RNA sequence: UUGACAGAAGAGAGUGAGCACACAGAGGCACUUGUAUAAGGCUAUACUUUUGCUUUUGCGUGCUCACUUCUCUUUCUGUCAG
Numbered sequence: 001u002u003g004a005c006a007g008a009a010g011a012g013a014g015u016g017a018g019c020a021c022a023c024a025g026a027g028g029c030a031c032u033u034g035u036a037u038a039a040g041g042c043u044a045u046a047c048u049u050u051u052g053c054u055u056u057u058g059c060g061u062g063c064u065c066a067c068u069u070c071u072c073u074u075u076c077u078g079u080c081a082g
Stems, first nucleotide, its partner, number of pairs: 001082009010072003013068009023058003

A member of the RNA family "mir-156 microRNA precursor family" from Gossypium raimondii, 82 nucleotides long.
It scores 76 bits against the family's covariance model.
From the family's description: This family represents the plant microRNA (miRNA) precursor mir-156.
The base pairs follow the family's consensus structure, which was predicted with PFOLD.
NCBI's taxonomy places the organism under Eukaryota, eudicotyledons, malvids, Malvaceae, Gossypium.
Its family is annotated with RISC complex and miRNA-mediated post-transcriptional gene silencing in the Gene Ontology.
For this family Rfam cites "MicroRNAs in plants" (Reinhart et al., Genes Dev, 2002).